Shown here is a 157-nucleotide RNA sequence from [Enterobacter] lignolyticus, a member of the family "sok antitoxin (CssrC)". From the family's description: Also identified in Shigella as CssrC. By type it is an antitoxin RNA. Rfam links the family to the GO term mRNA binding. Pairs were carried over by alignment from the consensus structure, which is taken from published work. For this family Rfam cites "An antisense RNA controls synthesis of an SOS-induced toxin evolved from an antitoxin" (Kawano et al., Mol Microbiol, 2007). The organism belongs to [Enterobacter] lignolyticus, within Bacteria.
[Rfam]
RNA sequence: GGGUGCUUGAGGCUGACUGGCCUCGGGCAUUUACCCGGAUCCAGAUAGACGAAAGCCCCAGGAGAUAUUUCUAUCAACCCGAGGCCAACGUAUGAACCUAGCAAUUCGGAUGUUAGUCUCUUCUUUGCAGGGAGGCAAGACAUGCUGACAAAGUAUG
Numbered sequence: 001g002g003g004u005g006c007u008u009g010a011g012g013c014u015g016a017c018u019g020g021c022c023u024c025g026g027g028c029a030u031u032u033a034c035c036c037g038g039a040u041c042c043a044g045a046u047a048g049a050c051g052a053a054a055g056c057c058c059c060a061g062g063a064g065a066u067a068u069u070u071c072u073a074u075c076a077a078c079c080c081g082a083g084g085c086c087a088a089c090g091u092a093u094g095a096a097c098c099u100a101g102c103a104a105u106u107c108g109g110a111u112g113u114u115a116g117u118c119u120c121u122u123c124u125u126u127g128c129a130g131g132g133a134g135g136c137a138a139g140a141c142a143u144g145c146u147g148a149c150a151a152a153g154u155a156u157g
Stems, first nucleotide, its partner, number of pairs: 001059003005056004011050001013048003017044004024038001027035001061079002064075004081120005088113004093108004124148002128144002